A member of the RNA family "DUF3800-VI RNA", 51 nucleotides long. It is annotated as a cis-regulatory element. The sequence is in the family's curated seed alignment.
RNA sequence: CGGUUGGGAGGGCUGCCAACGCGGUCCACCGGACGCGAGUCCGCCCGGCUG
Dot-bracket structure: ((((((((.(((((((....)))))))..(((((....)))))))))))))
Numbered sequence: 001c002g003g004u005u006g007g008g009a010g011g012g013c014u015g016c017c018a019a020c021g022c023g024g025u026c027c028a029c030c031g032g033a034c035g036c037g038a039g040u041c042c043g044c045c046c047g048g049c050u051g
Stems, first nucleotide, its partner, number of pairs: 001051008010027007030043005